RNA sequence: CCAUUAAGUGAUGGCGUGACAGACGGAGUGCCAUGCCAUCACACCUUAUCAUGGACACCUUGUUGUCAUGUCAUCACUUUCAAUGACGUGACAAUGAUGUGUUAGUGAUUGGGCAUGAUGACGUGACACUCCGUCUAUCACGUUUAUCACUUAAUGGAA
Numbered sequence: 001c002c003a004u005u006a007a008g009u010g011a012u013g014g015c016g017u018g019a020c021a022g023a024c025g026g027a028g029u030g031c032c033a034u035g036c037c038a039u040c041a042c043a044c045c046u047u048a049u050c051a052u053g054g055a056c057a058c059c060u061u062g063u064u065g066u067c068a069u070g071u072c073a074u075c076a077c078u079u080u081c082a083a084u085g086a087c088g089u090g091a092c093a094a095u096g097a098u099g100u101g102u103u104a105g106u107g108a109u110u111g112g113g114c115a116u117g118a119u120g121a122c123g124u125g126a127c128a129c130u131c132c133g134u135c136u137a138u139c140a141c142g143u144u145u146a147u148c149a150c151u152u153a154a155u156g157g158a159a
Base pairs, nucleotide, nucleotide: 001157002156003155004154005153006152007151008150009149010148011147012146013145014143015142016141017140018139019138021136022135023134024133025132026131027130028129029128030127032125033124034123035122037120038119039118040117041116044113045112046111048109049108050107051106052105054103055102056101057100058099070087071086072085073084074083

Background: The family of this 159-nucleotide RNA sequence from Glycine soja is "MIR4371 microRNA precursor family". The family has 4 seed sequences and 321 matches in Rfam 15.1. Pairs were carried over by alignment from the consensus structure, which was predicted with RNAalifold. The family is grouped with related families in Rfam's "MIR4387 microRNA precursor clan". It scores 135 bits against the family's covariance model.